[Rfam]
RNA sequence: AAAAGGCACCAGGGGUGCCAGAUAUGUAUGUAAUUCAUUACAUAUAUAUCGGCUGAGAAAGUCCCUUUGAACCUGAACAGGAUAAUGCCUGCGAAGGGAGUGUGCUCUUUCUUUCUU
Numbered sequence: 001a002a003a004a005g006g007c008a009c010c011a012g013g014g015g016u017g018c019c020a021g022a023u024a025u026g027u028a029u030g031u032a033a034u035u036c037a038u039u040a041c042a043u044a045u046a047u048a049u050c051g052g053c054u055g056a057g058a059a060a061g062u063c064c065c066u067u068u069g070a071a072c073c074u075g076a077a078c079a080g081g082a083u084a085a086u087g088c089c090u091g092c093g094a095a096g097g098g099a100g101u102g103u104g105c106u107c108u109u110u111c112u113u114u115c116u117u
Base pairs, nucleotide, nucleotide: 006105007104008103009102011066012065013064014063016060017053018052019051021049072097073096074095078091079090080089081088
This 117-nucleotide RNA belongs to the Rfam family "TPP riboswitch aptamer (THI element)". About the family: Vitamin B(1) in its active form thiamin pyrophosphate (TPP) is an essential coenzyme that is synthesised by coupling of pyrimidine and thiazole moieties in bacteria.